[Rfam]
RNA sequence: GUGAAGUUGAUCACCAACAAACAUAUACCCCUUUGUUUGACCCGUGAACGAUUUCUCCCAUCCCCUUUGUUCGUAUUUAUAGAAGAAGUCCUUGCGUCGAAAGUUGCAAGGGCUUUUU
Numbered sequence: 001g002u003g004a005a006g007u008u009g010a011u012c013a014c015c016a017a018c019a020a021a022c023a024u025a026u027a028c029c030c031c032u033u034u035g036u037u038u039g040a041c042c043c044g045u046g047a048a049c050g051a052u053u054u055c056u057c058c059c060a061u062c063c064c065c066u067u068u069g070u071u072c073g074u075a076u077u078u079a080u081a082g083a084a085g086a087a088g089u090c091c092u093u094g095c096g097u098c099g100a101a102a103g104u105u106g107c108a109a110g111g112g113c114u115u116u117u118u
Stems, first nucleotide, its partner, number of pairs: 003055006011047004018039006071082001086115011

Shown here is a 118-nucleotide RNA sequence from Pseudoneobacillus rhizosphaerae, a member of the family "RNA Staph. aureus E (RoxS)". Rfam describes the family as follows. It was shown to be regulated by the presence of nitric oxide (NO). In Bacillus subtilis it controls expression of genes with functions related to oxidative stress and oxidation-reduction reactions and it was renamed RoxS (for related to oxidative stress). A reference for the family is Durand et al. (2015), "A nitric oxide regulated small RNA controls expression of genes involved in redox homeostasis in Bacillus subtilis", PLoS Genet.